[Rfam]
RNA sequence: GGACUACCGCGUAACUGGCGAACGCAGAUGGUUAAACCAUCGGGGAGCGCGGUUUAGCAAAGGCCGCUCGCCUGGGCCGUUUCA
Numbered sequence: 001g002g003a004c005u006a007c008c009g010c011g012u013a014a015c016u017g018g019c020g021a022a023c024g025c026a027g028a029u030g031g032u033u034a035a036a037c038c039a040u041c042g043g044g045g046a047g048c049g050c051g052g053u054u055u056a057g058c059a060a061a062g063g064c065c066g067c068u069c070g071c072c073u074g075g076g077c078c079g080u081u082u083c084a
Base pairs, nucleotide, nucleotide: 006053007052008051009050010049011048012047015044016043017072018071019070020069021068028040029039030038031037062078063077064076065075
RNA: ZMP/ZTP riboswitch aptamer (pfl RNA motif)